[Rfam]
RNA sequence: AGGUUCUCCGCUUCAACAGUGCUUGAACGGCAGCCU
Numbered sequence: 001a002g003g004u005u006c007u008c009c010g011c012u013u014c015a016a017c018a019g020u021g022c023u024u025g026a027a028c029g030g031c032a033g034c035c036u
Stems, first nucleotide, its partner, number of pairs: 001036005007030002010028001012027005017021001
The family of this 36-nucleotide RNA sequence from Silurus meridionalis is "Iron response element I". Rfam 15.1 lists 6,829 matches to the family in 599 species. A search with the family's covariance model found it, with a score of 34 bits. The base pairs follow the family's consensus structure, which is taken from published work. Gene Ontology term of the family: response to iron ion. For this family Rfam cites "Identification of the iron-responsive element for the translational regulation of human ferritin mRNA" (Hentze et al., Science, 1987).